[Rfam]
The family of this 145-nucleotide RNA from Cephalotus follicularis is "Small nucleolar RNA snoR136".
The family's RNA type in Rfam is H/ACA-box small nucleolar RNA.
A search with the family's covariance model found it, with a score of 74 bits.
Gene Ontology terms of the family: nucleolus and RNA processing.
A reference for the family is Chen and Wu (2009), "Mining small RNA sequencing data: a new approach to identify small nucleolar RNAs in Arabidopsis", Nucleic Acids Res.
RNA sequence: GUGGCUUCUGAUGUUUUUUUAAGUUGUUUGCUUGGACUUAUCUAGUCUAUGAGCCAACUAUUCUUUGUGAAGCCUAAAGAAUUGUUCCCUUCGCUAUCCAGUGCCACAGUAUCAUGUUUCAAUUGGACGUUGGGGAACUAUAUUG
Numbered sequence: 001g002u003g004g005c006u007u008c009u010g011a012u013g014u015u016u017u018u019u020u021a022a023g024u025u026g027u028u029u030g031c032u033u034g035g036a037c038u039u040a041u042c043u044a045g046u047c048u049a050u051g052a053g054c055c056a057a058c059u060a061u062u063c064u065u066u067g068u069g070a071a072g073c074c075u076a077a078a079g080a081a082u083u084g085u086u087c088c089c090u091u092c093g094c095u096a097u098c099c100a101g102u103g104c105c106a107c108a109g110u111a112u113c114a115u116g117u118u119u120c121a122a123u124u125g126g127a128c129g130u131u132g133g134g135g136a137a138c139u140a141u142a143u144u145g
Stems, first nucleotide, its partner, number of pairs: 002076001003074003008069001010068001013065001019060001026058003030054004036050001084138007092129002097127005106117003